[Rfam]
RNA sequence: CAGGAUUCCUAAAACGAUAAUUGGGCGCUUAUAGGGAAAACUUAUAAGUGGAUCUGCUCAAAGUCGGGGAAAGCUUCAUGGCCAAUGCCAUAUGCCAAUCCCGAGCCAAGCCUUAUAAAACUCGAAUGUUUUAAAUGUCAUUUAUAACGUUCUUUUUAUAAGGAAGGUGUAGAGACUGGACGGGCAGCACCUAAAGGGAAACCACCCCUCCCUAUGGUGAAGGGACAGUCCAGACCACAAACGGCUAU
Number, nucleotide and partner (000 for none) at each position: 001c000002a000003g000004g000005a029006u000007u027008c000009c025010u024011a000012a022013a021014a000015c000016g000017a000018u000019a000020a000021u013022u012023g000024g010025g009026c000027g007028c000029u005030u000031a000032u000033a043034g042035g041036g000037a000038a000039a000040a000041c035042u034043u033044a000045u000046a000047a000048g000049u000050g000051g000052a000053u000054c187055u186056g185057c184058u000059c182060a000061a000062a000063g000064u104065c103066g102067g101068g100069g099070a000071a000072a000073g095074c094075u000076u092077c000078a000079u000080g000081g000082c000083c000084a000085a000086u000087g000088c000089c000090a000091u000092a076093u000094g074095c073096c000097a000098a000099u069100c068101c067102c066103g065104a064105g168106c167107c000108a000109a000110g000111c162112c000113u160114u000115a000116u000117a156118a155119a154120a153121c000122u000123c000124g000125a000126a000127u000128g000129u000130u000131u000132u000133a000134a000135a000136u000137g000138u000139c000140a000141u000142u000143u000144a000145u000146a000147a000148c000149g000150u000151u000152c000153u120154u119155u118156u117157u000158a000159u000160a113161a000162g111163g000164a000165a000166g000167g106168u105169g000170u000171a000172g231173a000174g230175a229176c228177u227178g226179g000180a000181c000182g059183g000184g057185c056186a055187g054188c000189a000190c217191c216192u000193a000194a213195a000196g211197g210198g209199a000200a000201a000202c000203c000204a000205c000206c000207c000208c000209u198210c197211c196212c000213u194214a000215u000216g191217g190218u000219g000220a000221a000222g000223g000224g000225a000226c178227a177228g176229u175230c174231c172232a000233g000234a000235c000236c000237a000238c000239a000240a000241a248242c000243g000244g000245c000246u000247a000248u241